The family of this 100-nucleotide RNA from Zea mays is "Small nucleolar RNA Z118/Z121/Z120".
Gene Ontology terms of the family: RNA processing and nucleolus.
Nucleotides: 100
Base pairs, nucleotide, nucleotide: 002099003098004097005096006095007094038060039059040058041057042056
Number, partner (000 for none) and nucleotide at each position: 001000u002099a003098u004097u005096u006095g007094c008000u009000a010000u011000g012000a013000g014000g015000a016000c017000u018000u019000c020000u021000a022000u023000u024000a025000g026000g027000a028000c029000g030000g031000u032000a033000u034000c035000u036000u037000a038060a039059g040058g041057g042056u043000a044000u045000g046000a047000u048000u049000u050000a051000g052000u053000u054000u055000a056042a057041c058040c059039c060038u061000u062000c063000u064000g065000a066000u067000u068000a069000u070000a071000u072000c073000a074000a075000a076000a077000c078000u079000g080000a081000a082000u083000u084000u085000g086000g087000u088000u089000u090000c091000u092000g093000a094007g095006c096005a097004a098003a099002u100000c
Rfam classes the family as a C/D-box small nucleolar RNA. The match comes from Rfam's covariance-model search (66 bits). For this family Rfam cites "The high diversity of snoRNAs in plants: identification and comparative study of 120 snoRNA genes from Oryza sativa" (Chen et al., Nucleic Acids Res, 2003). Rfam 15.1 lists 435 matches to the family in 31 species. Pairs were carried over by alignment from the consensus structure, which was predicted with PFOLD. The source organism's lineage runs through Eukaryota, Spermatophyta, Petrosaviidae, Tripsacinae and Zea.